RNA sequence: CCUUGCGUUAGGUUUAUUGGCCAAAAUACCAUUGCCAAUAGCGUGUAAUAAGUGGGUUUUACCCAAACCGGUACCACCAUA
Numbered sequence: 001c002c003u004u005g006c007g008u009u010a011g012g013u014u015u016a017u018u019g020g021c022c023a024a025a026a027u028a029c030c031a032u033u034g035c036c037a038a039u040a041g042c043g044u045g046u047a048a049u050a051a052g053u054g055g056g057u058u059u060u061a062c063c064c065a066a067a068c069c070g071g072u073a074c075c076a077c078c079a080u081a
Stems, first nucleotide, its partner, number of pairs: 004043003009038001011036003016032002020029001052077003056074002061072003
Rfam assigns this 81-nucleotide sequence from Parahaemophilus pittmaniae to the family "antisense RNA of dnaA mRNA". The match comes from Rfam's covariance-model search (54 bits). Gene Ontology term of the family: regulation of mRNA stability. The organism belongs to Parahaemophilus, within Bacteria.